The record is a 265-nucleotide RNA from Halobacteroides halobius, which matches "glmS glucosamine-6-phosphate activated ribozyme aptamer" in Rfam.
RNA sequence: AUUAUAAUUAUAGCGCCCGGACUCACAAUUAAACUAAUUGAUAAUGGACAAUGGACAAUUUACAAUUAAAAAUCUUCUAAACCAUUAUCAAUUUUCAAUUCUCAAUUGCAGUUAGUUGUGAGUUGACGAGGAAGGGGAAUUAUCGAUCAAUCGGCGGAUGCCCCUAGGUUAGUAGCUAUUAACCUAAAGAGGUAAGGAACUUCUUAAACUAAGCUCUUAAAACUUGUGAGUAAUUACAAGGAUAAAGGAGCUUAGAAUAGUAUUG
Numbered sequence: 001a002u003u004a005u006a007a008u009u010a011u012a013g014c015g016c017c018c019g020g021a022c023u024c025a026c027a028a029u030u031a032a033a034c035u036a037a038u039u040g041a042u043a044a045u046g047g048a049c050a051a052u053g054g055a056c057a058a059u060u061u062a063c064a065a066u067u068a069a070a071a072a073u074c075u076u077c078u079a080a081a082c083c084a085u086u087a088u089c090a091a092u093u094u095u096c097a098a099u100u101c102u103c104a105a106u107u108g109c110a111g112u113u114a115g116u117u118g119u120g121a122g123u124u125g126a127c128g129a130g131g132a133a134g135g136g137g138a139a140u141u142a143u144c145g146a147u148c149a150a151u152c153g154g155c156g157g158a159u160g161c162c163c164c165u166a167g168g169u170u171a172g173u174a175g176c177u178a179u180u181a182a183c184c185u186a187a188a189g190a191g192g193u194a195a196g197g198a199a200c201u202u203c204u205u206a207a208a209c210u211a212a213g214c215u216c217u218u219a220a221a222a223c224u225u226g227u228g229a230g231u232a233a234u235u236a237c238a239a240g241g242a243u244a245a246a247g248g249a250g251c252u253u254a255g256a257a258u259a260g261u262a263u264u265g
Base pairs, nucleotide, nucleotide: 020124021123022122023121024120025119026118027117029115030114031113032112133165134164135163136162137161143154144153145152146151166204167203168202209255210254211253212252213251214250215249223240224239225238226237227236228235229234